[Rfam]
Background: A member of the RNA family "GA-cis RNA" from Schaedlerella arabinosiphila, 86 nucleotides long. Taxonomically the source falls in Schaedlerella (Bacteria, Bacillati, Clostridia, Lachnospirales). The match comes from Rfam's covariance-model search (65 bits).
RNA sequence: CUGAGGAGGAAGGCAAAUGUGCAGCAUUUUUUUAAUGCCUUCCAACGACAUGCCGCCGAACCGUCGGUGAGGGGGCGCUACAUUAU
Numbered sequence: 001c002u003g004a005g006g007a008g009g010a011a012g013g014c015a016a017a018u019g020u021g022c023a024g025c026a027u028u029u030u031u032u033u034a035a036u037g038c039c040u041u042c043c044a045a046c047g048a049c050a051u052g053c054c055g056c057c058g059a060a061c062c063g064u065c066g067g068u069g070a071g072g073g074g075g076c077g078c079u080a081c082a083u084u085a086u
Base pairs, nucleotide, nucleotide: 008043009042010041011040012039013038016028017027018026019025052076053075054074056072057071060068061067